[Rfam]
The record is a 71-nucleotide sequence from Haemaphysalis longicornis, which matches "mir-iab-4 microRNA precursor family" in Rfam. The match comes from Rfam's covariance-model search (79 bits). Gene Ontology terms of the family: RISC complex and miRNA-mediated post-transcriptional gene silencing.
RNA sequence: CGCCUGUUACGUAUACUGAAGGUAUACCGGAAAAUUACUUACUCAGGAUACAUUCAGUAUACGAACAGGAG
Numbered sequence: 001c002g003c004c005u006g007u008u009a010c011g012u013a014u015a016c017u018g019a020a021g022g023u024a025u026a027c028c029g030g031a032a033a034a035u036u037a038c039u040u041a042c043u044c045a046g047g048a049u050a051c052a053u054u055c056a057g058u059a060u061a062c063g064a065a066c067a068g069g070a071g
Stems, first nucleotide, its partner, number of pairs: 003069004010063011022051004027047002030044002034040001